[Rfam]
Shown here is a 115-nucleotide sequence from Hymenobacter qilianensis, a member of the family "SAM riboswitch aptamer (S box leader)".
RNA sequence: AUUUUAUACAGAAGCGGCGAGAGAACAGGCUCCCUGACCCGCUGGCAACCUUCAUUGUUUUGAAAGGUGCCAAUUCCUGCCCGUUCGGCCAUUUUGCCAGCGGGAGAUAUAAGCU
Numbered sequence: 001a002u003u004u005u006a007u008a009c010a011g012a013a014g015c016g017g018c019g020a021g022a023g024a025a026c027a028g029g030c031u032c033c034c035u036g037a038c039c040c041g042c043u044g045g046c047a048a049c050c051u052u053c054a055u056u057g058u059u060u061u062g063a064a065a066g067g068u069g070c071c072a073a074u075u076c077c078u079g080c081c082c083g084u085u086c087g088g089c090c091a092u093u094u095u096g097c098c099a100g101c102g103g104g105a106g107a108u109a110u111a112a113g114c115u
Stems, first nucleotide, its partner, number of pairs: 001115001003113006013043005021032003026079004044071004049067002051064004075107001080104006
It scores 73 bits against the family's covariance model. The base pairs follow the family's consensus structure, which is taken from published work. Clan: SAM clan.